[Rfam]
RNA sequence: CCUCUUUUUGCUCUUCCUAAUCACACAGGCCCAGCGUAUGCUUGGAAUGUUUCCAAAGAGUGAAAGGAAGGCUCUCCUAAUGCAUAACCGACUUGUCCACAAUGGUUCUCUGCUCCUAGGAGUACAACAUCU
Numbered sequence: 001c002c003u004c005u006u007u008u009u010g011c012u013c014u015u016c017c018u019a020a021u022c023a024c025a026c027a028g029g030c031c032c033a034g035c036g037u038a039u040g041c042u043u044g045g046a047a048u049g050u051u052u053c054c055a056a057a058g059a060g061u062g063a064a065a066g067g068a069a070g071g072c073u074c075u076c077c078u079a080a081u082g083c084a085u086a087a088c089c090g091a092c093u094u095g096u097c098c099a100c101a102a103u104g105g106u107u108c109u110c111u112g113c114u115c116c117u118a119g120g121a122g123u124a125c126a127a128c129a130u131c132u
Base pairs, nucleotide, nucleotide: 002066003065005063006062008060011058012057014055019043020042022040023039025037026036074122075121076120077119078118080117082115090110091109095106096105097104
RNA: Small nucleolar RNA SNORA64/SNORA10 family